Rfam assigns this 76-nucleotide RNA from Cebus imitator to the family "mir-320 microRNA precursor family". The family's consensus secondary structure was predicted with RNAalifold. The organism belongs to Cebus, within Eukaryota.
RNA sequence: CGAUUUCCUGGCCUUCUCUACCCGGUUCUUCCCGGAGUCAGGAAAAGCGGGGUUGAGAGAAUGAAAAAAAAAUUAU
Number, nucleotide and partner (000 for none) at each position: 001c000002g000003a000004u000005u000006u000007c000008c000009u000010g000011g000012c000013c000014u059015u058016c057017u056018c055019u000020a000021c052022c051023c050024g000025g048026u000027u000028c000029u044030u043031c042032c041033c000034g039035g000036a000037g000038u000039c034040a000041g032042g031043a030044a029045a000046a000047g000048c025049g000050g023051g022052g021053u000054u000055g018056a017057g016058a015059g014060a000061a000062u000063g000064a000065a000066a000067a000068a000069a000070a000071a000072a000073u000074u000075a000076u000